[Rfam]
RNA sequence: GUUAAGGGGUUUGUUGUCUGGUUCAAGGCCUCCUGCUGUCCUACAUCACAUUUUUUUUUCUUUGUUCUGAAUUUCUGAUGGAUGUGUGUGUGCAUGAUGCAUGGCUGGUGGUGACCUCGGACCAGGCUUCAUUCCCUUUAAC
Dot-bracket structure: (((((((((..((..((((((..(.(((......................................................................................))).)..))))))..))..)))))))))